[Rfam]
Rfam assigns this 99-nucleotide RNA sequence from Candidatus Methylopumilus turicensis to the family "Methylophilales-1 RNA".

RNA sequence: UGUUAGUGCAGUGAAUAAGGUAGUAAGUUUGGGUAACCAGAUGGAUGAGCCGUCAUUGACUUAGUGUGACCCUGCCGAUAUAGAUUAAGCGCACUAACA
Numbered sequence: 001u002g003u004u005a006g007u008g009c010a011g012u013g014a015a016u017a018a019g020g021u022a023g024u025a026a027g028u029u030u031g032g033g034u035a036a037c038c039a040g041a042u043g044g045a046u047g048a049g050c051c052g053u054c055a056u057u058g059a060c061u062u063a064g065u066g067u068g069a070c071c072c073u074g075c076c077g078a079u080a081u082a083g084a085u086u087a088a089g090c091g092c093a094c095u096a097a098c099a
Stems, first nucleotide, its partner, number of pairs: 001099009019076004027042006047072001049070001051068002054066005
Pairs were carried over by alignment from the consensus structure, which is taken from published work.